The family of this 54-nucleotide RNA is "pemK RNA".
[Rfam]
RNA sequence: AUAAUGAUACUUCCGAUAAAGAUUCGGUCUGAAAAGAUGGUGCAAAUCCAAUGA
Numbered sequence: 001a002u003a004a005u006g007a008u009a010c011u012u013c014c015g016a017u018a019a020a021g022a023u024u025c026g027g028u029c030u031g032a033a034a035a036g037a038u039g040g041u042g043c044a045a046a047u048c049c050a051a052u053g054a
Stems, first nucleotide, its partner, number of pairs: 012051001013027004028037003038050003
The family's consensus secondary structure is taken from published work.